Group II catalytic intron D1-D4-7: a 150-nucleotide sequence from Maribellus comscasis. For this family Rfam cites "The ins and outs of group II introns" (Bonen and Vogel, Trends Genet, 2001). Gene Ontology term of the family: Group II intron splicing. Rfam 15.1 lists 1,296 matches to the family in 705 species. The source organism's lineage runs through Bacteria, Bacteroidia, Marinilabiliales, Prolixibacteraceae and Maribellus. About the family: Group II introns are found in rRNA, tRNA and mRNA of organelles in fungi, plants and protists, and also in mRNA in bacteria. A search with the family's covariance model found it, with a score of 110 bits.
[Rfam]
RNA sequence: CCUGUUGUUUCGUCAACAGUAGCCUAGGGCACAUGCGAUAGUAAGUAAUCAAUUCGUAUGAGAGCUGUCCUGACAAUGAAGCCCUUCCGAAAGGAGGAGUCAGAACCGUGAGGGGACGACAACCGCUGUUAGCAUCAAAUGGUGGGGGAG
Numbered sequence: 001c002c003u004g005u006u007g008u009u010u011c012g013u014c015a016a017c018a019g020u021a022g023c024c025u026a027g028g029g030c031a032c033a034u035g036c037g038a039u040a041g042u043a044a045g046u047a048a049u050c051a052a053u054u055c056g057u058a059u060g061a062g063a064g065c066u067g068u069c070c071u072g073a074c075a076a077u078g079a080a081g082c083c084c085u086u087c088c089g090a091a092a093g094g095a096g097g098a099g100u101c102a103g104a105a106c107c108g109u110g111a112g113g114g115g116a117c118g119a120c121a122a123c124c125g126c127u128g129u130u131a132g133c134a135u136c137a138a139a140u141g142g143u144g145g146g147g148g149a150g
Stems, first nucleotide, its partner, number of pairs: 002019006027070005032060007042051001044049001084097005099120003106113002125143006